Shown here is a 153-nucleotide sequence, a member of the family "Alphaproteobacterial sRNA ar45". On this family, see del Val et al., RNA Biol 2012: "A survey of sRNA families in alpha-proteobacteria". It scores 66 bits against the family's covariance model.
RNA sequence: GCCCAAAUCGCACGUGCCUGUGGUCGUGUGUCGAUCGGCGGGGAUCCGGACAAGAGGCCGGUUAACCGUCGCUGAAAAUCGGCAGCCGGAGGCGAACCGGCGAACCCCGCCAAACGGGGGACGCGACUUAAAGCAACGACGGACCGGGCUUUU
Numbered sequence: 001g002c003c004c005a006a007a008u009c010g011c012a013c014g015u016g017c018c019u020g021u022g023g024u025c026g027u028g029u030g031u032c033g034a035u036c037g038g039c040g041g042g043g044a045u046c047c048g049g050a051c052a053a054g055a056g057g058c059c060g061g062u063u064a065a066c067c068g069u070c071g072c073u074g075a076a077a078a079u080c081g082g083c084a085g086c087c088g089g090a091g092g093c094g095a096a097c098c099g100g101c102g103a104a105c106c107c108c109g110c111c112a113a114a115c116g117g118g119g120g121a122c123g124c125g126a127c128u129u130a131a132a133g134c135a136a137c138g139a140c141g142g143a144c145c146g147g148g149c150u151u152u153u
Stems, first nucleotide, its partner, number of pairs: 001149004008139003015135003022128008037070005046061004079099001081097001105119005